[Rfam]
RNA sequence: AAAGAACGUCGCCGGAGAAUGCGAGGGUGUUUUCACCAGCAUGGUUUCAUGUGGUAGUCGCACCGGGGGUUCUUUCUUUU
Number, nucleotide and partner (000 for none) at each position: 001a075002a074003a073004g072005a071006a070007c069008g000009u000010c067011g000012c066013c065014g064015g063016a000017g000018a000019a000020u062021g061022c060023g059024a058025g000026g037027g036028u035029g034030u000031u000032u000033u000034c029035a028036c027037c026038a000039g000040c051041a050042u049043g048044g000045u000046u000047u000048c043049a042050u041051g040052u000053g000054g000055u000056a000057g000058u024059c023060g022061c021062a020063c015064c014065g013066g012067g010068g000069g007070u006071u005072c004073u003074u002075u001076c000077u000078u000079u000080u000
RNA: DUF3800-VII RNA